[Rfam]
Shown here is a 166-nucleotide sequence, a member of the family "Clostridiales-1 RNA".
RNA sequence: GCAUGCAAGCAUGCAUAUGCAUACAUGUAUGCAUAUGCAUGCUUGCAUGCAUAUGAAUGCUUGUAUGCAUAUGCAUUCAUGUAUGCAUGUGCAUGUGUGUAUGCAUAUGCAUGCUUGUAUGUAUGCAUGCUUGUAUGCAUAUGCAUGGAUGUAUGCAUAUGCAUGG
Numbered sequence: 001g002c003a004u005g006c007a008a009g010c011a012u013g014c015a016u017a018u019g020c021a022u023a024c025a026u027g028u029a030u031g032c033a034u035a036u037g038c039a040u041g042c043u044u045g046c047a048u049g050c051a052u053a054u055g056a057a058u059g060c061u062u063g064u065a066u067g068c069a070u071a072u073g074c075a076u077u078c079a080u081g082u083a084u085g086c087a088u089g090u091g092c093a094u095g096u097g098u099g100u101a102u103g104c105a106u107a108u109g110c111a112u113g114c115u116u117g118u119a120u121g122u123a124u125g126c127a128u129g130c131u132u133g134u135a136u137g138c139a140u141a142u143g144c145a146u147g148g149a150u151g152u153a154u155g156c157a158u159a160u161g162c163a164u165g166g
Base pairs, nucleotide, nucleotide: 002165003164004163005162006161007160010073011072012071013070020067021066022065023064024063025062027060028059029058030057032055033054034053035052037050038049039048040047041046078129079128080127081126082125083124084123091122092121093120094119099114100113101112102111103110104109135146136145137144138143